[Rfam]
RNA sequence: AUCAGUUAAAGGCAAACCAUUUGAAAAAUUGGGACGCAAAAUCACAGAUCUAAAGCUAAAGGCUAAGAUGGCUGGAUUGUCUGA
Numbered sequence: 001a002u003c004a005g006u007u008a009a010a011g012g013c014a015a016a017c018c019a020u021u022u023g024a025a026a027a028a029u030u031g032g033g034a035c036g037c038a039a040a041a042u043c044a045c046a047g048a049u050c051u052a053a054a055g056c057u058a059a060a061g062g063c064u065a066a067g068a069u070g071g072c073u074g075g076a077u078u079g080u081c082u083g084a
Stems, first nucleotide, its partner, number of pairs: 012037002017032003021028002040078004045074003048069003055063003
Shown here is an 84-nucleotide RNA from Oceanobacillus zhaokaii, a member of the family "c-di-GMP-I riboswitch aptamer". A search with the family's covariance model found it, with a score of 73 bits. Pairs were carried over by alignment from the consensus structure, which is taken from published work. The source organism's lineage runs through Bacteria, Bacillati, Bacillota, Caryophanales and Oceanobacillus. The family has 155 seed sequences and 5,092 matches in Rfam 15.1. About the family: GEMM was predicted in a large-scale screen for bacterial structured RNA regulatory elements.